[Rfam]
RNA sequence: AUAUCCUCAGCUGUAAGGGAGUGCUUCGCGCGCGGGCUGUCAGACCUU
Number, nucleotide and partner (000 for none) at each position: 001a000002u000003a000004u000005c000006c000007u000008c039009a038010g037011c036012u035013g000014u000015a000016a000017g000018g000019g000020a000021g033022u032023g031024c030025u000026u000027c000028g000029c000030g024031c023032g022033c021034g000035g012036g011037c010038u009039g008040u000041c000042a000043g000044a000045c000046c000047u000048u000